[Rfam]
RNA sequence: UUGGCCCCGGUUCACGUCGCGCAUCCCGCCCGACGACCCGGGAAACAGCC
Numbered sequence: 001u002u003g004g005c006c007c008c009g010g011u012u013c014a015c016g017u018c019g020c021g022c023a024u025c026c027c028g029c030c031c032g033a034c035g036a037c038c039c040g041g042g043a044a045a046c047a048g049c050c
Stems, first nucleotide, its partner, number of pairs: 003050003007041004015035005021029002

Shown here is a 50-nucleotide RNA from Yimella sp. RIT 621, a member of the family "L31-Actinobacteria ribosomal protein leader". The source organism's lineage runs through Bacteria, Bacillati, Micrococcales, Dermacoccaceae and Yimella. A search with the family's covariance model found it, with a score of 36 bits. The family's consensus secondary structure is taken from published work. For this family Rfam cites "Discovery of 20 novel ribosomal leader candidates in bacteria and archaea" (Eckert and Weinberg, BMC Microbiol, 2020).